[Rfam]
RNA sequence: UUUCUCUACCAUGAUGAAUGAAUGAGCGGAAGAGUUCUUGAAGACUAUAUUCAUCACCCAAGACUGAAAAUAUA
Numbered sequence: 001u002u003u004c005u006c007u008a009c010c011a012u013g014a015u016g017a018a019u020g021a022a023u024g025a026g027c028g029g030a031a032g033a034g035u036u037c038u039u040g041a042a043g044a045c046u047a048u049a050u051u052c053a054u055c056a057c058c059c060a061a062g063a064c065u066g067a068a069a070a071u072a073u074a
Base pairs, nucleotide, nucleotide: 001070002069003068029037030036031035